RNA: TPP riboswitch aptamer (THI element)
RNA sequence: GUCCUCACCUCGGGGUGCAUUGGGACCUGUUUCCACUGCUGAGAUGCGCAAGCGAACCCGUUGAACCUGAACCGGUUAACACCGGCGGAGGGAAGGUCUGGAAGUCGCAC
Numbered sequence: 001g002u003c004c005u006c007a008c009c010u011c012g013g014g015g016u017g018c019a020u021u022g023g024g025a026c027c028u029g030u031u032u033c034c035a036c037u038g039c040u041g042a043g044a045u046g047c048g049c050a051a052g053c054g055a056a057c058c059c060g061u062u063g064a065a066c067c068u069g070a071a072c073c074g075g076u077u078a079a080c081a082c083c084g085g086c087g088g089a090g091g092g093a094a095g096g097u098c099u100g101g102a103a104g105u106c107g108c109a110c
Stems, first nucleotide, its partner, number of pairs: 007097004011060004016054001017039003021035005046053002066091003072085004